[Rfam]
RNA sequence: GUUUAGGGGAAUGUUGUCUGGCUCGAAGCCAUUGGAAUGAGAGCAGUGUCUUGAUCUAUCCUUAUCGAUAUGAGUGGAUUCGGACCAGGCUUCAUUCCCCUCAAC
Numbered sequence: 001g002u003u004u005a006g007g008g009g010a011a012u013g014u015u016g017u018c019u020g021g022c023u024c025g026a027a028g029c030c031a032u033u034g035g036a037a038u039g040a041g042a043g044c045a046g047u048g049u050c051u052u053g054a055u056c057u058a059u060c061c062u063u064a065u066c067g068a069u070a071u072g073a074g075u076g077g078a079u080u081c082g083g084a085c086c087a088g089g090c091u092u093c094a095u096u097c098c099c100c101u102c103a104a105c
Stems, first nucleotide, its partner, number of pairs: 001105003005101009016090006024082003
Background: A member of the RNA family "mir-166 microRNA precursor family" from Musa troglodytarum, 105 nucleotides long. NCBI's taxonomy places the organism under Eukaryota, Viridiplantae, Petrosaviidae, commelinids, Musa. For this family Rfam cites "MicroRNAs in plants" (Reinhart et al., Genes Dev, 2002). From the family's description: This family represents the plant microRNA (miRNA) precursor mir-166. Rfam links the family to the GO terms RISC complex and miRNA-mediated post-transcriptional gene silencing. Pairs were carried over by alignment from the consensus structure, which was predicted with PFOLD.